[Rfam]
RNA: Manganese Mn2+ riboswitch aptamer (yybP-ykoY)
Organism: Aquimixticola soesokkakensis
RNA sequence: GUUCAGGGUAUCGGGGAGUAGCGAUCAUCAGCGAUGAUGAGAGCACGUCAACAUAUUCGCGGCUCAUCCGCGUGGCGUGCUCGGUCCAAAGAGACUUUGCGAGACCGUGGCGUGGGGAUCCUGCGGGCGGGGUCCGUGCAUCGCCCGGUUCAGCCCUGAGGAUCC
Numbered sequence: 001g002u003u004c005a006g007g008g009u010a011u012c013g014g015g016g017a018g019u020a021g022c023g024a025u026c027a028u029c030a031g032c033g034a035u036g037a038u039g040a041g042a043g044c045a046c047g048u049c050a051a052c053a054u055a056u057u058c059g060c061g062g063c064u065c066a067u068c069c070g071c072g073u074g075g076c077g078u079g080c081u082c083g084g085u086c087c088a089a090a091g092a093g094a095c096u097u098u099g100c101g102a103g104a105c106c107g108u109g110g111c112g113u114g115g116g117g118a119u120c121c122u123g124c125g126g127g128c129g130g131g132g133u134c135c136g137u138g139c140a141u142c143g144c145c146c147g148g149u150u151c152a153g154c155c156c157u158g159a160g161g162a163u164c165c
Stems, first nucleotide, its partner, number of pairs: 025040003041082010058072005083164005